[Rfam]
RNA: Plastid-ycf2 5UTR RNA
RNA sequence: GUGCAUUUAGAAGGAAUUGAACCUACGAAUUCUCCAAUUAUGAGCUGGGCGCUUUAACCAUUCCGCCAUGGAUGC
Number, nucleotide and partner (000 for none) at each position: 001g000002u000003g075004c074005a073006u072007u071008u070009a000010g026011a000012a024013g023014g022015a000016a000017u000018u000019g000020a000021a000022c014023c013024u012025a000026c010027g000028a000029a000030u000031u000032c000033u000034c000035c000036a000037a000038u000039u000040a069041u068042g067043a000044g066045c065046u000047g063048g062049g061050c000051g059052c000053u000054u000055u000056a000057a000058c000059c051060a000061u049062u048063c047064c000065g045066c044067c042068a041069u040070g008071g007072a006073u005074g004075c003